[Rfam]
RNA: MIR2619 microRNA precursor family
RNA sequence: AAACCGCCUGCUAAGUAUUGACUUUUUCGCAGUUUUGGCCCCAUGCCAAUUUUGACCAAGUCAAAGCUGACGUGGACGCCACACGUAUGUAUUUAUUUUCAAGUGGCGUCCAUGUGUGUAUUGACUUUGCCAAAAUUGGUCUGGGGUGCCAAAACUGCAAAAAAGUCAAUACUUAGGGGGUGAUUU
Number, nucleotide and partner (000 for none) at each position: 001a186002a185003a000004c000005c182006g181007c180008c179009u000010g000011c000012u175013a174014a173015g172016u171017a170018u169019u168020g167021a166022c165023u164024u163025u162026u161027u160028c000029g158030c157031a156032g155033u154034u153035u152036u151037g150038g149039c146040c145041c144042c143043a142044u000045g000046c000047c000048a000049a000050u000051u000052u000053u000054g000055a000056c000057c000058a000059a000060g000061u000062c000063a000064a000065a000066g000067c000068u000069g000070a115071c114072g000073u112074g111075g110076a109077c108078g107079c106080c105081a000082c000083a000084c000085g000086u000087a000088u000089g000090u000091a000092u000093u000094u000095a000096u000097u000098u000099u000100c000101a000102a000103g000104u000105g080106g079107c078108g077109u076110c075111c074112a073113u000114g071115u070116g000117u000118g000119u000120a000121u000122u000123g000124a000125c000126u000127u000128u000129g000130c000131c000132a000133a000134a000135a000136u000137u000138g000139g000140u000141c000142u043143g042144g041145g040146g039147u000148g000149c038150c037151a036152a035153a034154a033155c032156u031157g030158c029159a000160a027161a026162a025163a024164a023165g022166u021167c020168a019169a018170u017171a016172c015173u014174u013175a012176g000177g000178g000179g008180g007181u006182g005183a000184u000185u002186u001